[Rfam]
Nucleotides: 093
Base pairs, nucleotide, nucleotide: 019084020083021082022081023080027057028056029055031050032049033048034047035046036045037044063079064078
Number, partner (000 for none) and nucleotide at each position: 001000u002000a003000a004000u005000g006000u007000u008000a009000c010000a011000a012000c013000u014000c015000a016000a017000a018000a019084u020083u021082c022081c023080c024000g025000a026000u027057a028056g029055g030000g031050u032049u033048c034047a035046c036045u037044u038000u039000c040000u041000u042000c043000a044037a045036a046035g047034u048033g049032a050031a051000a052000a053000u054000g055029c056028c057027u058000u059000g060000u061000a062000a063079c064078c065000a066000a067000a068000a069000u070000g071000a072000a073000a074000u075000a076000a077000u078064g079063g080023g081022g082021g083020a084019a085000a086000g087000a088000a089000a090000a091000a092000u093000g
Rfam assigns this 93-nucleotide sequence from Globicatella sp. HMSC072A10 to the family "SAM-III riboswitch aptamer (SMK box)". The source organism's lineage runs through Bacteria, Bacillati, Bacilli, Lactobacillales and Globicatella.